[Rfam]
RNA sequence: AGUUAAGACCAAGCUUGGUGUGCUAUGUUUUGUGUGCAGCCGUGUAUAUGGGCUCUGGAGUUAGCCACCUGGGUAAGGUCCUGCU
Numbered sequence: 001a002g003u004u005a006a007g008a009c010c011a012a013g014c015u016u017g018g019u020g021u022g023c024u025a026u027g028u029u030u031u032g033u034g035u036g037c038a039g040c041c042g043u044g045u046a047u048a049u050g051g052g053c054u055c056u057g058g059a060g061u062u063a064g065c066c067a068c069c070u071g072g073g074u075a076a077g078g079u080c081c082u083g084c085u
Stems, first nucleotide, its partner, number of pairs: 001085003005082001007080001009078002013074006019067002022065004028059002032053002035050002038047001
The family of this 85-nucleotide RNA from Saimiri boliviensis is "mir-571 microRNA precursor family". The family's consensus secondary structure was predicted with RNAalifold. Its family is annotated with miRNA-mediated post-transcriptional gene silencing and RISC complex in the Gene Ontology. The organism belongs to Saimiri boliviensis, within Eukaryota.